[Rfam]
Rfam assigns this 116-nucleotide RNA from Bacillus sp. cl95 to the family "epsC RNA". Rfam 15.1 lists 450 matches to the family in 334 species. The base pairs follow the family's consensus structure, which is taken from published work. Taxonomically the source falls in Bacillus (Bacteria, Bacilli, Caryophanales, Bacillaceae). It scores 110 bits against the family's covariance model. Rfam classes the family as a cis-regulatory element.
RNA sequence: CGGUAAUGUCUCCUGGCCGUUACAUACGGAGGCACUCGACCCUGCUGUGGGAACUUAACAAAGUUCCUUAGACGCAAAUUGUCACUAGCAGGGUGUGAGGGUGGGUUAGAUGCCCG
Number, nucleotide and partner (000 for none) at each position: 001c019002g018003g017004u016005a000006a000007u034008g033009u032010c031011u030012c029013c028014u000015g000016g004017c003018c002019g001020u000021u000022a000023c000024a000025u000026a000027c000028g013029g012030a011031g010032g009033c008034a007035c099036u098037c097038g096039a094040c093041c092042c091043u090044g089045c088046u087047g000048u000049g068050g067051g066052a065053a064054c063055u062056u061057a000058a000059c000060a000061a056062a055063g054064u053065u052066c051067c050068u049069u000070a000071g083072a082073c081074g080075c000076a000077a000078a000079u000080u074081g073082u072083c071084a000085c000086u000087a046088g045089c044090a043091g042092g041093g040094u039095g000096u038097g037098a036099g035100g000101g000102u116103g115104g114105g113106u112107u000108a000109g000110a000111u000112g106113c105114c104115c103116g102